[Rfam]
The record is an 81-nucleotide RNA sequence from Polypedilum vanderplanki, which matches "mir-263 microRNA precursor family" in Rfam. Gene Ontology terms of the family: RISC complex and miRNA-mediated post-transcriptional gene silencing. A reference for the family is Li et al. (2009), "Direct sequencing and expression analysis of a large number of miRNAs in Aedes aegypti and a multi-species survey of novel mosquito miRNAs", BMC Genomics.
RNA sequence: GACGGUCGAAUCUUGGCACUUGGAGAAUUCACAGUUUUAUUAUCUGUUCUGUGGAUCUUUUGGUGCCAUUAUUUGCCGAUC
Numbered sequence: 001g002a003c004g005g006u007c008g009a010a011u012c013u014u015g016g017c018a019c020u021u022g023g024a025g026a027a028u029u030c031a032c033a034g035u036u037u038u039a040u041u042a043u044c045u046g047u048u049c050u051g052u053g054g055a056u057c058u059u060u061u062g063g064u065g066c067c068a069u070u071a072u073u074u075g076c077c078g079a080u081c
Base pairs, nucleotide, nucleotide: 005077007075008074009073010072014068015067016066017065018064020062022060023058025057026056029054030053031052032051033050034049